Background:
This 85-nucleotide RNA belongs to the Rfam family "RAGATH-18 RNA". Rfam describes the family as follows. Actinobacteria, Firmicutes, Fusobacteria, Thermotogae (1 example).

RNA sequence: CCUUGAAGAGCGUUAUAUCAAACGAGAGUAGUUUACUAUAGAUUUGUAUCUAUAGGCAACAAAAUCGGACGUGAUGAACAAGGAA
Numbered sequence: 001c002c003u004u005g006a007a008g009a010g011c012g013u014u015a016u017a018u019c020a021a022a023c024g025a026g027a028g029u030a031g032u033u034u035a036c037u038a039u040a041g042a043u044u045u046g047u048a049u050c051u052a053u054a055g056g057c058a059a060c061a062a063a064a065u066c067g068g069a070c071g072u073g074a075u076g077a078a079c080a081a082g083g084a085a
Stems, first nucleotide, its partner, number of pairs: 001083005010072005023067003031060003036055008